RNA sequence: CAAAUCUGGAGAGUGCUGUUAACACAGCCACCGAAGGGGCACACGGAUUUUUCGUAAUCUCUCAGGUAAAGAGGACAGAUGGGGCGAG
Numbered sequence: 001c002a003a004a005u006c007u008g009g010a011g012a013g014u015g016c017u018g019u020u021a022a023c024a025c026a027g028c029c030a031c032c033g034a035a036g037g038g039g040c041a042c043a044c045g046g047a048u049u050u051u052u053c054g055u056a057a058u059c060u061c062u063c064a065g066g067u068a069a070a071g072a073g074g075a076c077a078g079a080u081g082g083g084g085c086g087a088g
Stems, first nucleotide, its partner, number of pairs: 001083001004080005015028004030067003033063002037061003044054002

Shown here is an 88-nucleotide RNA sequence from Candidatus Nitrotoga sp. AM1P, a member of the family "Glycine riboswitch aptamer". The match comes from Rfam's covariance-model search (53 bits). The source organism's lineage runs through Bacteria, Pseudomonadati, Pseudomonadota, Betaproteobacteria and Candidatus Nitrotoga. Rfam's curators write: This family represents the bacterial glycine riboswitch.